[Rfam]
RNA sequence: GCCAGUAUACACUGGACUUAUGCGGUACCCACCGCGUAUGACCUAGAACGUCAAAGGAGAAAACAAUG
Numbered sequence: 001g002c003c004a005g006u007a008u009a010c011a012c013u014g015g016a017c018u019u020a021u022g023c024g025g026u027a028c029c030c031a032c033c034g035c036g037u038a039u040g041a042c043c044u045a046g047a048a049c050g051u052c053a054a055a056g057g058a059g060a061a062a063a064c065a066a067u068g
Stems, first nucleotide, its partner, number of pairs: 002015005019038007039053004

The family of this 68-nucleotide sequence is "freshwater-2 RNA". It is one of the family's seed sequences.